[Rfam]
RNA: mir-55 microRNA precursor family
Organism: Caenorhabditis bovis
RNA sequence: CGGGGACUAGGCGAAAACUUGUCGCGGUAUACUGUAUCAAUAGAUAUACCCGUAUAAGUUUCCGCUGAGCCCCC
Numbered sequence: 001c002g003g004g005g006a007c008u009a010g011g012c013g014a015a016a017a018c019u020u021g022u023c024g025c026g027g028u029a030u031a032c033u034g035u036a037u038c039a040a041u042a043g044a045u046a047u048a049c050c051c052g053u054a055u056a057a058g059u060u061u062c063c064g065c066u067g068a069g070c071c072c073c074c
Stems, first nucleotide, its partner, number of pairs: 003072003007069002010066004015061004024051001026050006032043003